[Rfam]
RNA: MIR473 microRNA precursor family
RNA sequence: AUUGUUCACUCUCCCUCAAAGACUUCCAUAAUUUCUUUCGCAAAGAAGUCACUUUGGAAGUUUUUGGAGAGAGUUGAUAA
Numbered sequence: 001a002u003u004g005u006u007c008a009c010u011c012u013c014c015c016u017c018a019a020a021g022a023c024u025u026c027c028a029u030a031a032u033u034u035c036u037u038u039c040g041c042a043a044a045g046a047a048g049u050c051a052c053u054u055u056g057g058a059a060g061u062u063u064u065u066g067g068a069g070a071g072a073g074u075u076g077a078u079a080a
Base pairs, nucleotide, nucleotide: 006076008074009073010072011071012070013069015067017066018065019064020063021062022061023060024059025058026057